[Rfam]
RNA: mir-17 microRNA precursor family
RNA sequence: CUCUGGGUGCCAAAAGUGCUGUUUGUGCAGGUAGCAGUGUUCCACCUACUGCAAAACCAGCACUUCAUGCAGACAGCU
Numbered sequence: 001c002u003c004u005g006g007g008u009g010c011c012a013a014a015a016g017u018g019c020u021g022u023u024u025g026u027g028c029a030g031g032u033a034g035c036a037g038u039g040u041u042c043c044a045c046c047u048a049c050u051g052c053a054a055a056a057c058c059a060g061c062a063c064u065u066c067a068u069g070c071a072g073a074c075a076g077c078u
Base pairs, nucleotide, nucleotide: 004075005074009070010069012068014065015064016063017062018061019060020059021058023056024055026053027052028051030050031049032048033047034046